[Rfam]
Shown here is a 65-nucleotide sequence from Adhaeribacter aerolatus, a member of the family "DUF805 RNA". Its Rfam clan is "DUF805 clan". Rfam classes the family as a cis-regulatory element. The base pairs follow the family's consensus structure, which is taken from published work.
RNA sequence: UACAUGUGGAGCCAGAAACCACAUAAAACGGGGCGAUACCGAAAAGCCAGACGAGUAGGAAAACC
Number, nucleotide and partner (000 for none) at each position: 001u000002a000003c000004a000005u000006g022007u021008g020009g019010a000011g000012c000013c000014a000015g000016a000017a000018a000019c009020c008021a007022c006023a000024u000025a000026a000027a000028a000029c000030g000031g000032g048033g047034c046035g000036a000037u000038a000039c059040c058041g000042a000043a000044a000045a000046g034047c033048c032049a000050g000051a000052c000053g000054a000055g000056u000057a000058g040059g039060a000061a000062a000063a000064c000065c000